[Rfam]
RNA sequence: GUCAGCCCCUCGUGUGGCGCUAUCUCGCUGAACCCCCCCAGGGCCGGAAGGCAGCAAGGGUAAGUGGGCUCUGGUGGGUGCACGGGGGGUCCUGUCGUU
Numbered sequence: 001g002u003c004a005g006c007c008c009c010u011c012g013u014g015u016g017g018c019g020c021u022a023u024c025u026c027g028c029u030g031a032a033c034c035c036c037c038c039c040a041g042g043g044c045c046g047g048a049a050g051g052c053a054g055c056a057a058g059g060g061u062a063a064g065u066g067g068g069c070u071c072u073g074g075u076g077g078g079u080g081c082a083c084g085g086g087g088g089g090u091c092c093u094g095u096c097g098u099u
Base pairs, nucleotide, nucleotide: 004093005092008089009086010085011084012083013082014081015078018076019075020074021073022072024068025067026066027065028064029063035060036059037058043052044051045050
RNA: Bacterial small signal recognition particle RNA